[Rfam]
RNA: MIR7502 microRNA precursor family
Nucleotides: 144
Stems, first nucleotide, its partner, number of pairs: 002143003006139003010135005016129001018127001020125002023122002026119001028117006
Number, partner (000 for none) and nucleotide at each position: 001000a002143g003142u004141u005000u006139a007138a008137a009000a010135u011134u012133u013132c014131a015000c016129c017000a018127a019000u020125u021124u022000a023122u024121a025000u026119u027000g028117u029116u030115a031114a032113a033112a034000a035000u036000u037000a038000g039000u040000g041000u042000g043000g044000c045000u046000a047000a048000u049000g050000g051000a052000a053000u054000a055000a056000c057000c058000g059000a060000a061000c062000a063000a064000u065000g066000a067000c068000a069000c070000g071000u072000g073000g074000c075000u076000g077000c078000c079000a080000c081000g082000u083000a084000u085000g086000c087000c088000u089000u090000a091000u092000g093000c094000u095000g096000a097000c098000g099000u100000a101000c102000a103000a104000u105000g106000a107000c108000c109000a110000a111000u112033u113032u114031u115030u116029a117028a118000u119026a120000u121024u122023a123000g124021a125020a126000u127018u128000a129016g130000a131014u132013g133012g134011a135010a136000a137008u138007u139006u140000u141004a142003a143002c144000a